[Rfam]
RNA sequence: CCAAAGGCUCUUUUCAGAGCCACUCACGUUUUCAUCAAGAGCAGCU
Numbered sequence: 001c002c003a004a005a006g007g008c009u010c011u012u013u014u015c016a017g018a019g020c021c022a023c024u025c026a027c028g029u030u031u032u033c034a035u036c037a038a039g040a041g042c043a044g045c046u
Stems, first nucleotide, its partner, number of pairs: 006021006
RNA: Histone 3' UTR stem-loop
Organism: Carlito syrichta